[Rfam]
RNA sequence: CCCCUGCCUAGCCUGCGACUAAUUACCGCUGGCGAAAAGUCGGAACCUUCACCGACAGGCCGGGGCUCCUUUUUGAAGC
Numbered sequence: 001c002c003c004c005u006g007c008c009u010a011g012c013c014u015g016c017g018a019c020u021a022a023u024u025a026c027c028g029c030u031g032g033c034g035a036a037a038a039g040u041c042g043g044a045a046c047c048u049u050c051a052c053c054g055a056c057a058g059g060c061c062g063g064g065g066c067u068c069c070u071u072u073u074u075g076a077a078g079c
Base pairs, nucleotide, nucleotide: 001065002064003063004062006060007059008058011033012032013031039056040055041054042053043052047078048077049076050075051074
This 79-nucleotide sequence from Polaromonas sp. CG9_12 belongs to the Rfam family "int-alpA RNA". Rfam's curators write: Acidobacteria (1 example), Planctomycetes (1 example), Proteobacteria. Rfam classes the family as a small RNA. A search with the family's covariance model found it, with a score of 43 bits.